[Rfam]
RNA: c-di-AMP riboswitch aptamer (ydaO/yuaA leader)
RNA sequence: GAGGUCCGUUCGCAAGAAAGCUAUUGGCGAUGGCGGGGGACCCAUUUGGGCCUCACACACUUUGGGCCCUUGGGGUUAAGCACACAAACUCUCUUAGCGAUAGACGUGUGUCGAAGACGAAAGUCUUCGAACCCGACAGCUCACCUCGCAGGCGCUGGGAGAGGUACU
Numbered sequence: 001g002a003g004g005u006c007c008g009u010u011c012g013c014a015a016g017a018a019a020g021c022u023a024u025u026g027g028c029g030a031u032g033g034c035g036g037g038g039g040a041c042c043c044a045u046u047u048g049g050g051c052c053u054c055a056c057a058c059a060c061u062u063u064g065g066g067c068c069c070u071u072g073g074g075g076u077u078a079a080g081c082a083c084a085c086a087a088a089c090u091c092u093c094u095u096a097g098c099g100a101u102a103g104a105c106g107u108g109u110g111u112c113g114a115a116g117a118c119g120a121a122a123g124u125c126u127u128c129g130a131a132c133c134c135g136a137c138a139g140c141u142c143a144c145c146u147c148g149c150a151g152g153c154g155c156u157g158g159g160a161g162a163g164g165u166a167c168u
Stems, first nucleotide, its partner, number of pairs: 033149006043072002073134003081110004113128004